[Rfam]
RNA sequence: AUGCCACUUGUAACGGGCGUUACUCGGGUACUUCCGGCUGUGAUUAUGUUCGAGUCAGGUACCUGAAGUAGCGCGCGAAACGGGUGAGC
Number, nucleotide and partner (000 for none) at each position: 001a000002u000003g000004c000005c000006a000007c000008u000009u082010g081011u080012a000013a000014c077015g000016g000017g074018c073019g072020u071021u070022a069023c000024u000025c000026g000027g000028g000029u000030a060031c059032u000033u058034c000035c000036g056037g055038c054039u053040g000041u000042g000043a000044u000045u000046a000047u000048g000049u000050u000051c000052g000053a039054g038055u037056c036057a000058g033059g031060u030061a000062c000063c000064u000065g000066a000067a000068g000069u022070a021071g020072c019073g018074c017075g000076c000077g014078a000079a000080a011081c010082g009083g000084g000085u000086g000087a000088g000089c000
Description:
The record is an 89-nucleotide RNA sequence from Fopius arisanus, which matches "mir-275 microRNA precursor family" in Rfam. NCBI's taxonomy places the organism under Eukaryota, Bilateria, Eumetabola, Endopterygota, Fopius. Its family is annotated with miRNA-mediated post-transcriptional gene silencing and RISC complex in the Gene Ontology. The base pairs follow the family's consensus structure, which was predicted with RNAalifold.